[Rfam]
RNA sequence: UGUCCUUGGAAACCAAGUGUGGGUGUGGCCUGCAAUUGUGAUGGCGACCCAUCCUUGGUUUCUGAGGCUU
Numbered sequence: 001u002g003u004c005c006u007u008g009g010a011a012a013c014c015a016a017g018u019g020u021g022g023g024u025g026u027g028g029c030c031u032g033c034a035a036u037u038g039u040g041a042u043g044g045c046g047a048c049c050c051a052u053c054c055u056u057g058g059u060u061u062c063u064g065a066g067g068c069u070u
Stems, first nucleotide, its partner, number of pairs: 002069001004067004009062006016055002021050004028045003
RNA: mir-551 microRNA precursor family
Organism: Megalops atlanticus